A member of the RNA family "Glycine riboswitch aptamer" from Amycolatopsis marina, 113 nucleotides long. The source organism's lineage runs through Bacteria, Bacillati, Actinomycetota, Pseudonocardiales and Amycolatopsis.
RNA sequence: CCUCUGGAAAGCGGGUCGUCGGGUCACCCUCCGACGACCCCGCCGAAGGUGCAAGCCCAGCUGAAAGCAGGGCGAACCUCUCAGGCGCCCGGACGAACGGGCACGGACAGAGG
Numbered sequence: 001c002c003u004c005u006g007g008a009a010a011g012c013g014g015g016u017c018g019u020c021g022g023g024u025c026a027c028c029c030u031c032c033g034a035c036g037a038c039c040c041c042g043c044c045g046a047a048g049g050u051g052c053a054a055g056c057c058c059a060g061c062u063g064a065a066a067g068c069a070g071g072g073c074g075a076a077c078c079u080c081u082c083a084g085g086c087g088c089c090c091g092g093a094c095g096a097a098c099g100g101g102c103a104c105g106g107a108c109a110g111a112g113g
Stems, first nucleotide, its partner, number of pairs: 001113006013040011042086003045082002049080001051078001055073004
Rfam's curators write: This family represents the bacterial glycine riboswitch.